[Rfam]
Nucleotides: 074
Base pairs, nucleotide, nucleotide: 008066009065010064011063012062013061014060015059017058018057019056021054022053023052024051025050026049027048028047029046
Number, partner (000 for none) and nucleotide at each position: 001000u002000g003000g004000g005000c006000g007000u008066g009065a010064a011063a012062g013061a014060c015059a016000u017058g018057g019056g020000u021054a022053g023052u024051g025050a026049g027048a028047u029046g030000a031000g032000g033000u034000u035000u036000c037000u038000a039000g040000u041000c042000c043000g044000g045000c046029c047028a048027u049026c050025u051024c052023a053022c054021u055000a056019c057018c058017u059015u060014g061013u062012c063011u064010u065009u066008c067000a068000u069000g070000c071000g072000c073000g074000g
Rfam assigns this 74-nucleotide RNA sequence from Notodromas monacha to the family "mir-71 microRNA precursor family". The base pairs follow the family's consensus structure, which was predicted with RNAalifold. On this family, see Li et al., BMC Genomics 2009: "Direct sequencing and expression analysis of a large number of miRNAs in Aedes aegypti and a multi-species survey of novel mosquito miRNAs".